[Rfam]
RNA sequence: GAACUGUGAUGAUAUUUACAAGUGAUUGUGGGUCAAUCACACUCAUCUAAUAAAUAGGAUGACAUUGCACAACUGAGUUC
Numbered sequence: 001g002a003a004c005u006g007u008g009a010u011g012a013u014a015u016u017u018a019c020a021a022g023u024g025a026u027u028g029u030g031g032g033u034c035a036a037u038c039a040c041a042c043u044c045a046u047c048u049a050a051u052a053a054a055u056a057g058g059a060u061g062a063c064a065u066u067g068c069a070c071a072a073c074u075g076a077g078u079u080c
Base pairs, nucleotide, nucleotide: 001080002079003078004077
small nucleolar RNA snoR114: an 80-nucleotide sequence from Cajanus cajan. The family's RNA type in Rfam is C/D-box small nucleolar RNA. A reference for the family is Chen and Wu (2009), "Mining small RNA sequencing data: a new approach to identify small nucleolar RNAs in Arabidopsis", Nucleic Acids Res.